[Rfam]
RNA sequence: UUUACUCAGGUCUGUGGUUGAAAGUUGAUGCCAGUCGCAGGCAAAACAAUCCACGUAAGGUAGUCAAAAUGGCUGCUGAGCAUGGUGCGGCUUAGAAGUAAGUCCUGCCUAAUUAGGAAAAUAAUAAUCUAUUCCAGUCUAGUACAUAGUACUUAAGGCUAAUUGAUGUUAUUUUGCUGGUUAGAGAGAAGUAGUAGUAGGAGGGAACCCCUUAUAGGCGAGGCUUCCUGCAGGCGAAUGUGGGGGCAAAAACCAGGUCAGCUGAGUAAA
Numbered sequence: 001u002u003u004a005c006u007c008a009g010g011u012c013u014g015u016g017g018u019u020g021a022a023a024g025u026u027g028a029u030g031c032c033a034g035u036c037g038c039a040g041g042c043a044a045a046a047c048a049a050u051c052c053a054c055g056u057a058a059g060g061u062a063g064u065c066a067a068a069a070u071g072g073c074u075g076c077u078g079a080g081c082a083u084g085g086u087g088c089g090g091c092u093u094a095g096a097a098g099u100a101a102g103u104c105c106u107g108c109c110u111a112a113u114u115a116g117g118a119a120a121a122u123a124a125u126a127a128u129c130u131a132u133u134c135c136a137g138u139c140u141a142g143u144a145c146a147u148a149g150u151a152c153u154u155a156a157g158g159c160u161a162a163u164u165g166a167u168g169u170u171a172u173u174u175u176g177c178u179g180g181u182u183a184g185a186g187a188g189a190a191g192u193a194g195u196a197g198u199a200g201g202a203g204g205g206a207a208c209c210c211c212u213u214a215u216a217g218g219c220g221a222g223g224c225u226u227c228c229u230g231c232a233g234g235c236g237a238a239u240g241u242g243g244g245g246g247c248a249a250a251a252a253c254c255a256g257g258u259c260a261g262c263u264g265a266g267u268a269a270a
Base pairs, nucleotide, nucleotide: 001270002269003268004267005266006265007264008263009262012261013260014259015255016254017253018252019251028241029240030239031041033092034091035090036089037088038087039086050085051084058077059076064071083248104234105233106232107231108230109184110183111182112181113180114179115178116177188227189226190225191224197219198218203211204210205209